[Rfam]
RNA sequence: CUUUAUAUUAUGACGAAACAAAUCCGGAUGUAAAGAGAUACGUCUCACCUGUCCGAGAGCGCAAUACCCCAUGUGGAGACUUCCGUUGCCUUCCUUCUGAACCUUCCC
Numbered sequence: 001c002u003u004u005a006u007a008u009u010a011u012g013a014c015g016a017a018a019c020a021a022a023u024c025c026g027g028a029u030g031u032a033a034a035g036a037g038a039u040a041c042g043u044c045u046c047a048c049c050u051g052u053c054c055g056a057g058a059g060c061g062c063a064a065u066a067c068c069c070c071a072u073g074u075g076g077a078g079a080c081u082u083c084c085g086u087u088g089c090c091u092u093c094c095u096u097c098u099g100a101a102c103c104u105u106c107c108c
Base pairs, nucleotide, nucleotide: 005105025085026084027083028082
Notes
Rfam assigns this 108-nucleotide sequence from Clavulina sp. PMI_390 to the family "Small nucleolar RNA Z13/snr52". It is annotated as a C/D-box small nucleolar RNA. The organism belongs to Clavulina, within Eukaryota.